[Rfam]
RNA sequence: CAGCCAUAAGGCAAUGAAGUCUGCCGGAACUGCCCGGCCAUUCGGGCUAAUGACUUCUACCCUUGG
Dot-bracket structure: .........[[[[..((((((]]]]......((((((....))))))....)))))).........
Record summary: Rfam assigns this 66-nucleotide RNA from Desulforhabdus amnigena to the family "Fluoride riboswitch aptamer (crcB RNA motif)".